Record summary:
The record is a 73-nucleotide RNA from Electrophorus electricus, which matches "mir-21 microRNA precursor family" in Rfam. The family has 41 seed sequences and 777 matches in Rfam 15.1. A reference for the family is Coutinho et al. (2007), "Discovery and profiling of bovine microRNAs from immune-related and embryonic tissues", Physiol Genomics. The family's consensus secondary structure was predicted with RNAalifold. A search with the family's covariance model found it, with a score of 77 bits. Gene Ontology terms of the family: RISC complex and miRNA-mediated post-transcriptional gene silencing.
[Rfam]
RNA sequence: UGUCGGUUAGCUUAUCAGACUGGUGUUGGCUCUGAGCUCCUAAAGGCAACAGCAGUCUAUAGGCUGACUGAAA
Dot-bracket structure: .......((((((((..(((((.(((((.(..............).))))).))))).)))))))).......